[Rfam]
RNA: MIR1861 microRNA precursor family
RNA sequence: AUAUUCUUAGGCCCGAUCUUGUGGUAGGAACUGGGUAGUUAGUGAACUCGCUCUACGUUAUUCGUUCCCUCUCAACACGGUUCCUGCCACAAGAUCGAGUCUGCGAAUAU
Dot-bracket structure: ((((((.(((((.((((((((.(((((((((((.((......................................)).))))))))))).)))))))).))))).))))))